[Rfam]
RNA sequence: CGGGGUUGAAGCAGGCACCCCAUUAGACGGCCGAUCCGUCCAAGUUCUGC
Dot-bracket structure: .(((((....[[[[[.)))))....(((((.....))))).....]]]]]
Numbered sequence: 001c002g003g004g005g006u007u008g009a010a011g012c013a014g015g016c017a018c019c020c021c022a023u024u025a026g027a028c029g030g031c032c033g034a035u036c037c038g039u040c041c042a043a044g045u046u047c048u049g050c
Stems, first nucleotide, its partner, number of pairs: 002021005011050005026040005
The record is a 50-nucleotide RNA sequence, which matches "chrB-b RNA" in Rfam. Pairs were carried over by alignment from the consensus structure, which is taken from published work. The family's RNA type in Rfam is cis-regulatory element.